Shown here is a 104-nucleotide RNA sequence, a member of the family "DUF3577 RNA". It is one of the family's seed sequences.

RNA sequence: CCAUUGCAUAAGCACAUCCGUGUGCGAAAGUCGUCUGCAAAUCCGGCAGCGACGCAAUGUCGGACGACAUCUUCUUCAUCUUUGCUGCCUCUAGCAGCUCCUUC
Numbered sequence: 001c002c003a004u005u006g007c008a009u010a011a012g013c014a015c016a017u018c019c020g021u022g023u024g025c026g027a028a029a030g031u032c033g034u035c036u037g038c039a040a041a042u043c044c045g046g047c048a049g050c051g052a053c054g055c056a057a058u059g060u061c062g063g064a065c066g067a068c069a070u071c072u073u074c075u076u077c078a079u080c081u082u083u084g085c086u087g088c089c090u091c092u093a094g095c096a097g098c099u100c101c102u103u104c
Base pairs, nucleotide, nucleotide: 012025013024014023015022016021031067032066033065034064035063050062051061052060053059084098085097086096087095088094